[Rfam]
RNA: mir-221 microRNA precursor family
RNA sequence: UCCAUUGCUAGCUCAGUAUUCAGUGUAGAGUCUGUGUGAUAUUCAUACACAGCUACAUCUGAUUACUGGGUCAAUAAUGACAUCA
Dot-bracket structure: ............((((((.(((((((((...((((.............)))))))))).))).))))))................